Annotation: Y RNA: a 102-nucleotide sequence from Microcebus murinus. Y RNAs are components of the Ro ribonucleoprotein particle (Ro RNP), in association with Ro60 and La proteins. The Y RNAs and Ro60 and La proteins are well conserved, but the function of the Ro RNP is not known. In humans the RNA component can be one of four small RNAs -- hY1, hY3, hY4 and hY5. These small RNAs are predicted to fold into a conserved secondary structure containing three stem structures. Taxonomically the source falls in Microcebus (Eukaryota, Deuterostomia, Chordata, Mammalia). The family's consensus secondary structure is taken from published work.
RNA sequence: GGCUUGUCCGAGCACAGUGGUUUUUAUAACUAAUUGAUCACAACCAAUUAUAGAUUCCUUUGUUCCUUCUUCACUCCCAUUGCUUCACUUGACUAGCCUUAA
Numbered sequence: 001g002g003c004u005u006g007u008c009c010g011a012g013c014a015c016a017g018u019g020g021u022u023u024u025u026a027u028a029a030c031u032a033a034u035u036g037a038u039c040a041c042a043a044c045c046a047a048u049u050a051u052a053g054a055u056u057c058c059u060u061u062g063u064u065c066c067u068u069c070u071u072c073a074c075u076c077c078c079a080u081u082g083c084u085u086c087a088c089u090u091g092a093c094u095a096g097c098c099u100u101a102a
Base pairs, nucleotide, nucleotide: 001098002097003096004095006093007092008091010090011089016081017080018079019078020077028064029063030062032060033059